This 77-nucleotide RNA belongs to the Rfam family "L13-Bacteroidia ribosomal protein leader". Rfam classes the family as a cis-regulatory leader. The sequence is in the family's curated seed alignment.

RNA sequence: GGGGAGAGUCUUAGAAUCCCCACGGGACGUCGUGUAAAUAGUGACUGCCUUUGGCCAGACAGCACGGUUUGUGAAUC
Numbered sequence: 001g002g003g004g005a006g007a008g009u010c011u012u013a014g015a016a017u018c019c020c021c022a023c024g025g026g027a028c029g030u031c032g033u034g035u036a037a038a039u040a041g042u043g044a045c046u047g048c049c050u051u052u053g054g055c056c057a058g059a060c061a062g063c064a065c066g067g068u069u070u071g072u073g074a075a076u077c
Stems, first nucleotide, its partner, number of pairs: 001021005035071005041065003045062003049058002